Rfam assigns this 84-nucleotide sequence from Sipha flava to the family "mir-315 microRNA precursor family". It scores 71 bits against the family's covariance model. Lineage of the source: Eukaryota > Arthropoda > Pancrustacea > Neoptera > Sipha.

[Rfam]
RNA sequence: CUCUAAAUGAUUUUGAUUGUUGCUCAGAAAGCCUGAUACAUAGUUUAAAAUGGCUUUCGAGCAAUAAUCAUGACCAAGAAAGAG
Numbered sequence: 001c002u003c004u005a006a007a008u009g010a011u012u013u014u015g016a017u018u019g020u021u022g023c024u025c026a027g028a029a030a031g032c033c034u035g036a037u038a039c040a041u042a043g044u045u046u047a048a049a050a051u052g053g054c055u056u057u058c059g060a061g062c063a064a065u066a067a068u069c070a071u072g073a074c075c076a077a078g079a080a081a082g083a084g
Stems, first nucleotide, its partner, number of pairs: 001084004011073002014070004019065007027058007

Pairs were carried over by alignment from the consensus structure, which was predicted with RNAalifold. Rfam links the family to the GO terms RISC complex and miRNA-mediated post-transcriptional gene silencing. A reference for the family is Aravin et al. (2003), "The small RNA profile during Drosophila melanogaster development", Dev Cell.